[Rfam]
RNA sequence: AAGUAGUGUGACAUACCCGUUUGGGAUAUACUCUGAUGUAUGUUUAUUUGUUAUUUAAUUGCUUUGGGAUAACGGGGUGUUACAGUAAA
Numbered sequence: 001a002a003g004u005a006g007u008g009u010g011a012c013a014u015a016c017c018c019g020u021u022u023g024g025g026a027u028a029u030a031c032u033c034u035g036a037u038g039u040a041u042g043u044u045u046a047u048u049u050g051u052u053a054u055u056u057a058a059u060u061g062c063u064u065u066g067g068g069a070u071a072a073c074g075g076g077g078u079g080u081u082a083c084a085g086u087a088a089a
Stems, first nucleotide, its partner, number of pairs: 004087002007084008016076006
Shown here is an 89-nucleotide RNA sequence from Medicago truncatula, a member of the family "MIR2617 microRNA precursor family". Lineage of the source: Eukaryota > Embryophyta > Magnoliopsida > Papilionoideae > Medicago. Gene Ontology terms of the family: miRNA-mediated post-transcriptional gene silencing and RISC complex. The family has 3 seed sequences and 1,174 matches in Rfam 15.1.